[Rfam]
RNA: Small nucleolar RNA snoR99
Organism: Trema andersonii
RNA sequence: GUGCUUUAAGGAUGAAGCAGCCCCUCACAUUUAUCGUUAUCCAUCCUCUUCACUUUGUCAAUUAUCUUUUAAUGUCUUACUGAUCAUUUAUGGAUGGAAAAAUU
Numbered sequence: 001g002u003g004c005u006u007u008a009a010g011g012a013u014g015a016a017g018c019a020g021c022c023c024c025u026c027a028c029a030u031u032u033a034u035c036g037u038u039a040u041c042c043a044u045c046c047u048c049u050u051c052a053c054u055u056u057g058u059c060a061a062u063u064a065u066c067u068u069u070u071a072a073u074g075u076c077u078u079a080c081u082g083a084u085c086a087u088u089u090a091u092g093g094a095u096g097g098a099a100a101a102a103u104u
Stems, first nucleotide, its partner, number of pairs: 040098006057084004062079001064077001